[Rfam]
Nucleotides: 064
Stems, first nucleotide, its partner, number of pairs: 001064007009056004014051003020040009
Number, partner (000 for none) and nucleotide at each position: 001064u002063g003062a004061g005060c006059u007058u008000g009056u010055u011054c012053u013000u014051u015050u016049c017000g018000a019000a020040g021039g022038c023037u024036u025035a026034a027033g028032u029000a030000c031000c032028a033027c034026u035025u036024a037023a038022g039021c040020u041000c042000c043000u044000a045000a046000u047000u048000a049016g050015a051014a052000a053012a054011g055010a056009g057000g058007g059006g060005g061004c062003u063002c064001a
This 64-nucleotide RNA belongs to the Rfam family "DUF3800-VIII RNA". From the family's description: Bacteroidetes, Cyanobacteria, Firmicutes, Planctomycetes (1 example), Proteobacteria, Tenericutes (1 example). Pairs were carried over by alignment from the consensus structure, which is taken from published work.